[Rfam]
RNA sequence: GAUUACAACACAACUUCUCUGUAAUCGCGGCUG
Numbered sequence: 001g002a003u004u005a006c007a008a009c010a011c012a013a014c015u016u017c018u019c020u021g022u023a024a025u026c027g028c029g030g031c032u033g
Stems, first nucleotide, its partner, number of pairs: 001026007
The record is a 33-nucleotide sequence, which matches "S4-Bacteroidia ribosomal protein leader" in Rfam. The base pairs follow the family's consensus structure, which is taken from published work. The family's RNA type in Rfam is cis-regulatory leader. Clan: Ribosomal Protein S4 Leader clan.